[Rfam]
RNA sequence: GAUUUCAACUGAAAAAGUCAUCAACAACAAAAUUGUACAACUCAUCAAGACCUAAAACUUUUAUUUUUGUCAUUUCUUCAUCCGACAAAGAGUUAGUAAUAUUGUUCACAAAUUUUACAUAUAUGUGUUAUGGUUUAUAAAACCAGAUAAGAGAUACGUCAAUUUUGUGAACAAUAUUACUAUCACUUUGUCGGAUGAAGAAAUGAUCAAAAUAAAAGUUAUAGAUUUUGAUGAGUUAUACAACUUUGUUGUUAAUGACUUUUUCAGUUGAAGUC
Numbered sequence: 001g002a003u004u005u006c007a008a009c010u011g012a013a014a015a016a017g018u019c020a021u022c023a024a025c026a027a028c029a030a031a032a033u034u035g036u037a038c039a040a041c042u043c044a045u046c047a048a049g050a051c052c053u054a055a056a057a058c059u060u061u062u063a064u065u066u067u068u069g070u071c072a073u074u075u076c077u078u079c080a081u082c083c084g085a086c087a088a089a090g091a092g093u094u095a096g097u098a099a100u101a102u103u104g105u106u107c108a109c110a111a112a113u114u115u116u117a118c119a120u121a122u123a124u125g126u127g128u129u130a131u132g133g134u135u136u137a138u139a140a141a142a143c144c145a146g147a148u149a150a151g152a153g154a155u156a157c158g159u160c161a162a163u164u165u166u167g168u169g170a171a172c173a174a175u176a177u178u179a180c181u182a183u184c185a186c187u188u189u190g191u192c193g194g195a196u197g198a199a200g201a202a203a204u205g206a207u208c209a210a211a212a213u214a215a216a217a218g219u220u221a222u223a224g225a226u227u228u229u230g231a232u233g234a235g236u237u238a239u240a241c242a243a244c245u246u247u248g249u250u251g252u253u254a255a256u257g258a259c260u261u262u263u264u265c266a267g268u269u270g271a272a273g274u275c
Stems, first nucleotide, its partner, number of pairs: 014262008023253002026250002030246002033243005039237004044232007052224002056220012069207007077199005083193008092184001094182006101175012114162002117159002120156003131145006

Background: The family of this 275-nucleotide sequence from Oryza punctata is "MIR821 microRNA precursor family". Rfam 15.1 lists 1,438 matches to the family in 13 species. NCBI's taxonomy places the organism under Eukaryota, Embryophyta, Tracheophyta, commelinids, Oryza. The match comes from Rfam's covariance-model search (255 bits).